This 114-nucleotide RNA sequence from Hordeum vulgare belongs to the Rfam family "MIR444 microRNA precursor family". The literature on the family includes a 2008 paper in BMC Plant Biol by Sunkar et al., "Identification of novel and candidate miRNAs in rice by high throughput sequencing". It is one of the family's seed sequences. Taxonomically the source falls in Hordeum (Eukaryota, Streptophyta, Embryophyta, Liliopsida).
[Rfam]
RNA sequence: AGGCACAAGUAGGACACCAACAUUACCUGCAAGCAAGACGCAAAAUUAAUAGAACAUCACCAUACUUGUGGCUUUCUUGCAAGUCGUGCAGUUGCUGCCUCAAGCUUGCUGCCU
Numbered sequence: 001a002g003g004c005a006c007a008a009g010u011a012g013g014a015c016a017c018c019a020a021c022a023u024u025a026c027c028u029g030c031a032a033g034c035a036a037g038a039c040g041c042a043a044a045a046u047u048a049a050u051a052g053a054a055c056a057u058c059a060c061c062a063u064a065c066u067u068g069u070g071g072c073u074u075u076c077u078u079g080c081a082a083g084u085c086g087u088g089c090a091g092u093u094g095c096u097g098c099c100u101c102a103a104g105c106u107u108g109c110u111g112c113c114u
Stems, first nucleotide, its partner, number of pairs: 006108005013101002017097001021088003026083001028081005035074003039070004